[Rfam]
RNA sequence: UCAACCCGGUAUCGAUGGCGGCACUACGAAAGUAGCGCCGGAGGCAGCUGAACCCGCUUCAGCUCUGCAUUAGCAGCAAACAGGUCAGCGACCUGGGGUGCCUCGCAAGAACUCAACAUUCUGCCACCCCGAUGCACAGAUGCCGGUUG
Numbered sequence: 001u002c003a004a005c006c007c008g009g010u011a012u013c014g015a016u017g018g019c020g021g022c023a024c025u026a027c028g029a030a031a032g033u034a035g036c037g038c039c040g041g042a043g044g045c046a047g048c049u050g051a052a053c054c055c056g057c058u059u060c061a062g063c064u065c066u067g068c069a070u071u072a073g074c075a076g077c078a079a080a081c082a083g084g085u086c087a088g089c090g091a092c093c094u095g096g097g098g099u100g101c102c103u104c105g106c107a108a109g110a111a112c113u114c115a116a117c118a119u120u121c122u123g124c125c126a127c128c129c130c131g132a133u134g135c136a137c138a139g140a141u142g143c144c145g146g147u148u149g
Stems, first nucleotide, its partner, number of pairs: 002149004007145007019040004024035003041104004048062005081096001082094005
The record is a 149-nucleotide RNA from Pantoea sp. A4, which matches "EFASI RNA" in Rfam. Rfam's curators put it in the seed alignment. The organism belongs to Pantoea, within Bacteria.